RNA sequence: ACCAUUCAAUCGCUGAAUCCAUUUCAUGGAGCGGGGGAACCAAACUUUUGGGGUGAAUCCUGCAUUCAUUGCAGGUAGGGUUAGCUCUCAUAUGACCCGAAUCCGUCAGCUAACCUCGUAAGCGUUGGAGAGGAGUGGU
Numbered sequence: 001a002c003c004a005u006u007c008a009a010u011c012g013c014u015g016a017a018u019c020c021a022u023u024u025c026a027u028g029g030a031g032c033g034g035g036g037g038a039a040c041c042a043a044a045c046u047u048u049u050g051g052g053g054u055g056a057a058u059c060c061u062g063c064a065u066u067c068a069u070u071g072c073a074g075g076u077a078g079g080g081u082u083a084g085c086u087c088u089c090a091u092a093u094g095a096c097c098c099g100a101a102u103c104c105g106u107c108a109g110c111u112a113a114c115c116u117c118g119u120a121a122g123c124g125u126u127g128g129a130g131a132g133g134a135g136u137g138g139u
Stems, first nucleotide, its partner, number of pairs: 011124004018030003031119006041050002051104003059075004078098006
Shown here is a 139-nucleotide RNA from Thermoflavimicrobium dichotomicum, a member of the family "c-di-AMP riboswitch aptamer (ydaO/yuaA leader)".
A search with the family's covariance model found it, with a score of 112 bits.
Gene Ontology terms of the family: regulation of gene expression and cyclic-di-AMP binding.